[Rfam]
RNA: BsrG
Organism: Shouchella clausii
RNA sequence: AAUAAUAGCAUAACGGUUUACUCAAGGGUGGUCGGCACACUCCCAUGAAAGGGGGUGUUGCUGUAUGACAGUAUUUGAAGGAAUUUCCCUUAUGUUGACGUUCGGGCUACUGAUCGUUGCAUUGCUGUCCUUUCACAACCACAAAAAAUAAUCCACCCUUGAGUUAGCGGCUCAGGUGGAUUAUUCGUAACCAUCGGCCGAUCCCCCUUGCAGGGAACCGAGCUAUUAUUUGACUGAAGGUGCUGGAACACCUUCA
Numbered sequence: 001a002a003u004a005a006u007a008g009c010a011u012a013a014c015g016g017u018u019u020a021c022u023c024a025a026g027g028g029u030g031g032u033c034g035g036c037a038c039a040c041u042c043c044c045a046u047g048a049a050a051g052g053g054g055g056u057g058u059u060g061c062u063g064u065a066u067g068a069c070a071g072u073a074u075u076u077g078a079a080g081g082a083a084u085u086u087c088c089c090u091u092a093u094g095u096u097g098a099c100g101u102u103c104g105g106g107c108u109a110c111u112g113a114u115c116g117u118u119g120c121a122u123u124g125c126u127g128u129c130c131u132u133u134c135a136c137a138a139c140c141a142c143a144a145a146a147a148a149u150a151a152u153c154c155a156c157c158c159u160u161g162a163g164u165u166a167g168c169g170g171c172u173c174a175g176g177u178g179g180a181u182u183a184u185u186c187g188u189a190a191c192c193a194u195c196g197g198c199c200g201a202u203c204c205c206c207c208u209u210g211c212a213g214g215g216a217a218c219c220g221a222g223c224u225a226u227u228a229u230u231u232g233a234c235u236g237a238a239g240g241u242g243c244u245g246g247a248a249c250a251c252c253u254u255c256a
Stems, first nucleotide, its partner, number of pairs: 001230005007224003011220001014200005021163008030153003037058008067129007080095001082093001105120001166185002202217001204215002235256008